[Rfam]
RNA: c-di-GMP-I-GGC riboswitch aptamer
RNA sequence: GGGAGAAAAGCCAAACCUGUUGUGAAGCAGGGACGGAAAGCCAAGGGUCUCAUAAUAAUACUGAGAUAGCCUAGUUGCCUUUG
Numbered sequence: 001g002g003g004a005g006a007a008a009a010g011c012c013a014a015a016c017c018u019g020u021u022g023u024g025a026a027g028c029a030g031g032g033a034c035g036g037a038a039a040g041c042c043a044a045g046g047g048u049c050u051c052a053u054a055a056u057a058a059u060a061c062u063g064a065g066a067u068a069g070c071c072u073a074g075u076u077g078c079c080u081u082u083g
Base pairs, nucleotide, nucleotide: 003080011036012035016031017030018029019028020027021026034069039076040075041074044072045071046070047067048066049065050064051063052062